The family of this 299-nucleotide RNA from Gigaspora margarita is "RNase MRP".
Clan: RNaseP clan.
By type it is a ribozyme.
[Rfam]
RNA sequence: GAACACCUCAAAGAAUCGCUAUCAAAGCACCACAUACGGAGCAAUAAUUUUUUAAAUUAUUUGCUCAAUUUAUUGCUUUGGGGAAAGUCCUCGGACAUAUGGCAGAAAGUGUCGCCCAUAAUGUGGCAUUACCAUUCGUUGAUCUUCUUUAUGCCAAAGAAAGAGUUUACUCUUGAGGCUGUUAGGAGUGUCACGAUUGGUUUCGUUGGUCAUAGCACAGUUAUGCGAUUGUGGUCUCUUCUGAUCUUCUUUGGAAGAUAGGGAGGUCAUAACACAACGAGGCUUACUCUUGGGAUGUU
Numbered sequence: 001g002a003a004c005a006c007c008u009c010a011a012a013g014a015a016u017c018g019c020u021a022u023c024a025a026a027g028c029a030c031c032a033c034a035u036a037c038g039g040a041g042c043a044a045u046a047a048u049u050u051u052u053u054a055a056a057u058u059a060u061u062u063g064c065u066c067a068a069u070u071u072a073u074u075g076c077u078u079u080g081g082g083g084a085a086a087g088u089c090c091u092c093g094g095a096c097a098u099a100u101g102g103c104a105g106a107a108a109g110u111g112u113c114g115c116c117c118a119u120a121a122u123g124u125g126g127c128a129u130u131a132c133c134a135u136u137c138g139u140u141g142a143u144c145u146u147c148u149u150u151a152u153g154c155c156a157a158a159g160a161a162a163g164a165g166u167u168u169a170c171u172c173u174u175g176a177g178g179c180u181g182u183u184a185g186g187a188g189u190g191u192c193a194c195g196a197u198u199g200g201u202u203u204c205g206u207u208g209g210u211c212a213u214a215g216c217a218c219a220g221u222u223a224u225g226c227g228a229u230u231g232u233g234g235u236c237u238c239u240u241c242u243g244a245u246c247u248u249c250u251u252u253g254g255a256a257g258a259u260a261g262g263g264a265g266g267u268c269a270u271a272a273c274a275c276a277a278c279g280a281g282g283c284u285u286a287c288u289c290u291u292g293g294g295a296u297g298u299u
Stems, first nucleotide, its partner, number of pairs: 002299004007294005014230006022081007039066006085285003089282004101113004114127003129200003136196003140193003145186002153179003162173004232269009